The family of this 85-nucleotide RNA sequence from Geosporobacter ferrireducens is "c-di-GMP-I riboswitch aptamer".
RNA sequence: AUGGAAAAAAGGCACACUUAUCUAAAGAUAAGGCCGCAAAGCUAUGGGUCUAAGGGAUUAUUCCUAUGAUCGCCAAGUUACCAAA
Numbered sequence: 001a002u003g004g005a006a007a008a009a010a011g012g013c014a015c016a017c018u019u020a021u022c023u024a025a026a027g028a029u030a031a032g033g034c035c036g037c038a039a040a041g042c043u044a045u046g047g048g049u050c051u052a053a054g055g056g057a058u059u060a061u062u063c064c065u066a067u068g069a070u071c072g073c074c075a076a077g078u079u080a081c082c083a084a085a
Base pairs, nucleotide, nucleotide: 012037013036017032018031019030020029021028022027040079041078042077043076045075046074047073048070049069050068055064056063057062
Dot-bracket structure: ...........((...((((((....))))))...))..((((.((((((....(((....)))...)))..)))))))......
The family's consensus secondary structure is taken from published work. For this family Rfam cites "Identification of 22 candidate structured RNAs in bacteria using the CMfinder comparative genomics pipeline" (Weinberg et al., Nucleic Acids Res, 2007).